[Rfam]
The family of this 143-nucleotide RNA from Paenibacillus lutrae is "c-di-AMP riboswitch aptamer (ydaO/yuaA leader)".
The organism belongs to Paenibacillus, within Bacteria.
Gene Ontology terms of the family: cyclic-di-AMP binding and regulation of gene expression.
Nucleotides: 143
Base pairs, nucleotide, nucleotide: 012127013126014125019039020038021037022036023035024034042122043121044120045119046118049058059108060107061106067084068083087102088101089100090099
Number, partner (000 for none) and nucleotide at each position: 001000u002000u003000u004000c005000u006000a007000c008000a009000a010000a011000u012127g013126c014125c015000g016000a017000a018000u019039c020038c021037g022036a023035u024034g025000a026000a027000u028000c029000a030000a031000a032000g033000c034024c035023a036022u037021c038020g039019g040000u041000a042122c043121g044120g045119g046118g047000g048000a049058c050000u051000u052000u053000u054000c055000a056000u057000u058049g059108g060107g061106g062000u063000g064000a065000a066000u067084g068083c069000g070000u071000g072000u073000g074000a075000u076000u077000a078000u079000a080000c081000u082000a083068g084067c085000u086000a087102g088101g089100g090099a091000a092000c093000c094000u095000c096000u097000c098000u099090u100089c101088c102087c103000g104000a105000a106061c107060c108059c109000g110000u111000c112000a113000a114000c115000u116000a117000a118046c119045c120044u121043c122042g123000g124000a125014g126013g127012c128000u129000c130000c131000a132000a133000g134000g135000a136000g137000g138000a139000a140000a141000a142000u143000a